[Rfam]
Nucleotides: 114
Base pairs, nucleotide, nucleotide: 002113004111008107009106010105011104013102014101015100018097019096020095021094037077038076040074049063050062
Number, partner (000 for none) and nucleotide at each position: 001000c002113u003000g004111g005000g006000c007000u008107a009106u010105g011104g012000u013102g014101a015100c016000a017000u018097g019096u020095a021094c022000c023000c024000c025000a026000a027000g028000a029000c030000a031000u032000g033000g034000u035000c036000u037077g038076g039000g040074a041000u042000g043000c044000u045000g046000g047000u048000c049063g050062g051000g052000g053000c054000a055000c056000u057000g058000u059000g060000u061000g062050c063049c064000c065000u066000g067000g068000c069000u070000g071000g072000u073000g074040u075000g076038c077037u078000g079000a080000c081000c082000a083000u084000u085000g086000c087000c088000a089000u090000g091000c092000c093000g094021g095020u096019g097018c098000c099000c100015g101014u102013c103000a104011u105010u106009g107008u108000c109000a110000a111004c112000a113002a114000c

This 114-nucleotide sequence belongs to the Rfam family "Potassium channel RNA editing signal". From the family's description: This family represents a group of sequences related to the human potassium channel Kv1.1 hairpin element which directs the efficient modification of an adenosine to inosine by an adenosine deaminase acting on RNA (ADAR).